RNA sequence: UGUCUGCGAUGAUGAUUUAAUGAAUCCAAUCACAUGUCAGACUUCAGAGAUUCAUUCUAAGGAAGGAAUCAAUGAGAUUGCAAUUCAUCAGUCUGAGCAGAUA
Numbered sequence: 001u002g003u004c005u006g007c008g009a010u011g012a013u014g015a016u017u018u019a020a021u022g023a024a025u026c027c028a029a030u031c032a033c034a035u036g037u038c039a040g041a042c043u044u045c046a047g048a049g050a051u052u053c054a055u056u057c058u059a060a061g062g063a064a065g066g067a068a069u070c071a072a073u074g075a076g077a078u079u080g081c082a083a084u085u086c087a088u089c090a091g092u093c094u095g096a097g098c099a100g101a102u103a
Base pairs, nucleotide, nucleotide: 001103002102003101004100005099006098007097049070050069051068052067
Rfam assigns this 103-nucleotide RNA sequence from Cynara cardunculus to the family "Small nucleolar RNA R64/Z200 family". The literature on the family includes a 2002 paper in Curr Biol by Marker et al., "Experimental RNomics: identification of 140 candidates for small non-messenger RNAs in the plant Arabidopsis thaliana". Pairs were carried over by alignment from the consensus structure, which was predicted with PFOLD. Rfam 15.1 lists 748 matches to the family in 228 species. The source organism's lineage runs through Eukaryota, Mesangiospermae, Carduinae, Cynara and Cynara cardunculus subsp. cardunculus. The match comes from Rfam's covariance-model search (78 bits).